[Rfam]
RNA: Purine riboswitch aptamer
RNA sequence: CAACACCAAAUUUCAUAGUCUCGUAUAUGCUUGGGGAUCUGGCCCGAGCGUCUCUACCCGGCAACCGGAAAUUGCCGGACUACGAGUUGAAAGCGAAUCUAG
Numbered sequence: 001c002a003a004c005a006c007c008a009a010a011u012u013u014c015a016u017a018g019u020c021u022c023g024u025a026u027a028u029g030c031u032u033g034g035g036g037a038u039c040u041g042g043c044c045c046g047a048g049c050g051u052c053u054c055u056a057c058c059c060g061g062c063a064a065c066c067g068g069a070a071a072u073u074g075c076c077g078g079a080c081u082a083c084g085a086g087u088u089g090a091a092a093g094c095g096a097a098u099c100u101a102g
Stems, first nucleotide, its partner, number of pairs: 018088001020086006029049007058078007
Dot-bracket structure: .................(.((((((...(((((((.......)))))))........(((((((.......)))))))..)))))).)..............